[Rfam]
RNA sequence: GUGAGAGCAGGUAUCUUCCCAGCCUACACGUAGGUCCUGAAAUCUGCAGGCUGGUUUGAUGGUUGUCUUGCAC
Numbered sequence: 001g002u003g004a005g006a007g008c009a010g011g012u013a014u015c016u017u018c019c020c021a022g023c024c025u026a027c028a029c030g031u032a033g034g035u036c037c038u039g040a041a042a043u044c045u046g047c048a049g050g051c052u053g054g055u056u057u058g059a060u061g062g063u064u065g066u067c068u069u070g071c072a073c
Stems, first nucleotide, its partner, number of pairs: 007066004012061004019054007030047006